[Rfam]
This 83-nucleotide RNA sequence from Ixodes scapularis belongs to the Rfam family "mir-750 microRNA precursor family". The base pairs follow the family's consensus structure, which was predicted with RNAalifold. Rfam's curators put it in the seed alignment.
RNA sequence: GUCCCACUCGAGUUGGAAGUGGGAUCCUGACACUUGAGCGCUGUCGGUGGUGCCAGAUCUAACUCUUCCAGCUCAGGUGAGGU
Numbered sequence: 001g002u003c004c005c006a007c008u009c010g011a012g013u014u015g016g017a018a019g020u021g022g023g024a025u026c027c028u029g030a031c032a033c034u035u036g037a038g039c040g041c042u043g044u045c046g047g048u049g050g051u052g053c054c055a056g057a058u059c060u061a062a063c064u065c066u067u068c069c070a071g072c073u074c075a076g077g078u079g080a081g082g083u
Stems, first nucleotide, its partner, number of pairs: 001083003005079003010074008019065001021063001022060005029053001031052004